RNA sequence: UGCUGGACGCCGCGUGACGGACGGUCGUGAACCCCGUCAGAUCCGGAAGGAAGCAGCGGUAAGCGAUGCAGUCGGUGUCGCGGAUUGUUCUGGUUAU
Numbered sequence: 001u002g003c004u005g006g007a008c009g010c011c012g013c014g015u016g017a018c019g020g021a022c023g024g025u026c027g028u029g030a031a032c033c034c035c036g037u038c039a040g041a042u043c044c045g046g047a048a049g050g051a052a053g054c055a056g057c058g059g060u061a062a063g064c065g066a067u068g069c070a071g072u073c074g075g076u077g078u079c080g081c082g083g084a085u086u087g088u089u090c091u092g093g094u095u096a097u
Stems, first nucleotide, its partner, number of pairs: 005090004010083005015077001017076002020073003024067005034059004042051003
Rfam assigns this 97-nucleotide RNA from Dethiosulfatarculus sandiegensis to the family "Bacterial small signal recognition particle RNA".
The base pairs follow the family's consensus structure, which is taken from published work.
Rfam's curators write: The signal recognition particle (SRP) is a universally conserved ribonucleoprotein involved in the co-translational targeting of proteins to membranes.
NCBI's taxonomy places the organism under Bacteria, Thermodesulfobacteriota, Desulfarculia, Desulfarculales, Dethiosulfatarculus.